[Rfam]
RNA sequence: AUAAUGAUACUUCUGCGCGCAGCUCCGCGAGAACCGCGGAGGGGUGAAAUUCCCAUGA
Numbered sequence: 001a002u003a004a005u006g007a008u009a010c011u012u013c014u015g016c017g018c019g020c021a022g023c024u025c026c027g028c029g030a031g032a033a034c035c036g037c038g039g040a041g042g043g044g045u046g047a048a049a050u051u052c053c054c055a056u057g058a
Stems, first nucleotide, its partner, number of pairs: 012055001013022003023041003027037003042054003
RNA: pemK RNA